Overview:
The record is a 79-nucleotide RNA sequence from Segnochrobactrum spirostomi, which matches "Makes More Granules Regulator RNA (mmgR)" in Rfam. The source organism's lineage runs through Bacteria, Pseudomonadota, Alphaproteobacteria, Hyphomicrobiales and Segnochrobactrum. It scores 61 bits against the family's covariance model.
[Rfam]
RNA sequence: GUUCGCAGCCCUCCUUGGGCGUUUCCUCCCUAGACUUGGGCCGCAGCGCUUCCGCGCGCGGCCCUUUUUCUUUUGCGCU
Number, nucleotide and partner (000 for none) at each position: 001g000002u000003u000004c000005g000006c000007a000008g020009c019010c018011c017012u000013c000014c000015u000016u000017g011018g010019g009020c008021g000022u000023u000024u000025c000026c000027u000028c000029c000030c000031u000032a000033g000034a000035c000036u000037u000038g064039g063040g062041c061042c060043g059044c058045a000046g000047c000048g000049c000050u000051u000052c000053c000054g000055c000056g000057c000058g044059c043060g042061g041062c040063c039064c038065u000066u000067u000068u000069u000070c000071u000072u000073u000074u000075g000076c000077g000078c000079u000